[Rfam]
The record is a 74-nucleotide RNA sequence, which matches "HDV ribozyme from F. prausnitzii" in Rfam. Its family is annotated with catalytic activity in the Gene Ontology. Rfam 15.1 lists 3,803 matches to the family in 91 species.
RNA sequence: ACUGCUCGUAAUAAUCACACAUCUCUUCGUGGUGAGCAGCAGGCAACGAUCUUAUGAUUGGCUGAGAUGUGAAA
Numbered sequence: 001a002c003u004g005c006u007c008g009u010a011a012u013a014a015u016c017a018c019a020c021a022u023c024u025c026u027u028c029g030u031g032g033u034g035a036g037c038a039g040c041a042g043g044c045a046a047c048g049a050u051c052u053u054a055u056g057a058u059u060g061g062c063u064g065a066g067a068u069g070u071g072a073a074a
Stems, first nucleotide, its partner, number of pairs: 002039006021033003047060005